[Rfam]
RNA: mir-1299 microRNA precursor family
RNA sequence: CCUCGUGGCAGUGUUCUGGAAUCCUAUGUGAGAGACAAACAUUCAGACCCUCAUAACAGUUUUCUGGAAUGCUACGUGAGGGA
Numbered sequence: 001c002c003u004c005g006u007g008g009c010a011g012u013g014u015u016c017u018g019g020a021a022u023c024c025u026a027u028g029u030g031a032g033a034g035a036c037a038a039a040c041a042u043u044c045a046g047a048c049c050c051u052c053a054u055a056a057c058a059g060u061u062u063u064c065u066g067g068a069a070u071g072c073u074a075c076g077u078g079a080g081g082g083a
Base pairs, nucleotide, nucleotide: 001081002080003079004078005077006076007075010073011072013070014069015068016067017066018065019064020063021062024059025058027056028054029053030052032050034048